[Rfam]
RNA sequence: AGAGAUAGAACAAACAAAGGCUGGGAAGAUGCAGAGCACGAAUGAAGCUAUCAACAGAAAAUGGUGAAGUCAGAAUGAGAGUAGAAAGAGAGAGAGAGAGAGAAAGAUCUGUUGUGGCCACGCUCAUGCACUGCCUCUUCCCUGGCUCUACCUCUUUCUUAUCC
Numbered sequence: 001a002g003a004g005a006u007a008g009a010a011c012a013a014a015c016a017a018a019g020g021c022u023g024g025g026a027a028g029a030u031g032c033a034g035a036g037c038a039c040g041a042a043u044g045a046a047g048c049u050a051u052c053a054a055c056a057g058a059a060a061a062u063g064g065u066g067a068a069g070u071c072a073g074a075a076u077g078a079g080a081g082u083a084g085a086a087a088g089a090g091a092g093a094g095a096g097a098g099a100g101a102g103a104a105a106g107a108u109c110u111g112u113u114g115u116g117g118c119c120a121c122g123c124u125c126a127u128g129c130a131c132u133g134c135c136u137c138u139u140c141c142c143u144g145g146c147u148c149u150a151c152c153u154c155u156u157u158c159u160u161a162u163c164c
Stems, first nucleotide, its partner, number of pairs: 018147002021144001023142005029136001031134004036129003040125002
RNA: MIR408 microRNA precursor family
Organism: Vigna radiata